[Rfam]
RNA sequence: UUCCAUGAUGAUGUAUCCAAUUGGUUGAGUUGCAGGUCAUUUCAGGCCCCUGUUCUGCAGGGAGAACCUCCUGGAGUUCCUUCAUUCAUAUGAUAUAUCUGGAUCUACUGAGAA
Numbered sequence: 001u002u003c004c005a006u007g008a009u010g011a012u013g014u015a016u017c018c019a020a021u022u023g024g025u026u027g028a029g030u031u032g033c034a035g036g037u038c039a040u041u042u043c044a045g046g047c048c049c050c051u052g053u054u055c056u057g058c059a060g061g062g063a064g065a066a067c068c069u070c071c072u073g074g075a076g077u078u079c080c081u082u083c084a085u086u087c088a089u090a091u092g093a094u095a096u097a098u099c100u101g102g103a104u105c106u107a108c109u110g111a112g113a114a
Stems, first nucleotide, its partner, number of pairs: 001114003048062005

This 114-nucleotide RNA sequence from Zostera marina belongs to the Rfam family "Small nucleolar RNA Z278". A search with the family's covariance model found it, with a score of 55 bits. For this family Rfam cites "The high diversity of snoRNAs in plants: identification and comparative study of 120 snoRNA genes from Oryza sativa" (Chen et al., Nucleic Acids Res, 2003). Rfam's curators write: snoZ278 is a C/D box small nucleolar RNA. Its methylation guide targets have not been reported.